[Rfam]
The record is a 114-nucleotide RNA sequence from Saimiri boliviensis, which matches "Y RNA" in Rfam. NCBI's taxonomy places the organism under Eukaryota, Teleostomi, Dipnotetrapodomorpha, Saimiri, Saimiri boliviensis. Rfam's curators write: Y RNAs are components of the Ro ribonucleoprotein particle (Ro RNP), in association with Ro60 and La proteins. The Y RNAs and Ro60 and La proteins are well conserved, but the function of the Ro RNP is not known. In humans the RNA component can be one of four small RNAs -- hY1, hY3, hY4 and hY5. Rfam classes the family as a non-coding RNA gene. The match comes from Rfam's covariance-model search (68 bits).

RNA sequence: GGCUAGUCCAAAGGUAGUGAGUUAUCUCAACUGAGUAUUCACAAUCAGUUACAGAUAAAAUUCCUUGUUCUAUUCUUUCCCCCCUUUCUCACUGCAGCACUUGAUUGGUCUUUU
Numbered sequence: 001g002g003c004u005a006g007u008c009c010a011a012a013g014g015u016a017g018u019g020a021g022u023u024a025u026c027u028c029a030a031c032u033g034a035g036u037a038u039u040c041a042c043a044a045u046c047a048g049u050u051a052c053a054g055a056u057a058a059a060a061u062u063c064c065u066u067g068u069u070c071u072a073u074u075c076u077u078u079c080c081c082c083c084c085u086u087u088c089u090c091a092c093u094g095c096a097g098c099a100c101u102u103g104a105u106u107g108g109u110c111u112u113u114u
Base pairs, nucleotide, nucleotide: 001110002109003108004107005106006105007104008103010102011101014098015097016093017092018091019090020089021088044074047071048070